[Rfam]
Nucleotides: 104
Base pairs, nucleotide, nucleotide: 019089020088021087022086023085024084025083029049030048032046033045034044035043058080059079060078061077062076063075064074
Number, partner (000 for none) and nucleotide at each position: 001000a002000g003000g004000u005000a006000u007000c008000a009000u010000u011000u012000u013000a014000a015000u016000a017000c018000g019089a020088c021087u022086c023085a024084u025083a026000u027000a028000a029049u030048u031000u032046u033045g034044g035043g036000g037000a038000u039000a040000u041000g042000g043035c044034c045033c046032a047000u048030a049029a050000g051000u052000u053000u054000c055000u056000a057000c058080c059079g060078g061077a062076u063075g064074a065000c066000c067000a068000c069000a070000u071000c072000a073000a074064u075063u076062g077061u078060c079059c080058g081000a082000c083025u084024a085023u086022g087021a088020g089019u090000g091000a092000a093000g094000g095000c096000g097000a098000a099000u100000g101000c102000g103000u104000c

Purine riboswitch aptamer: a 104-nucleotide sequence from Paenibacillus thalictri. Lineage of the source: Bacteria > Bacillati > Bacillota > Bacilli > Paenibacillus.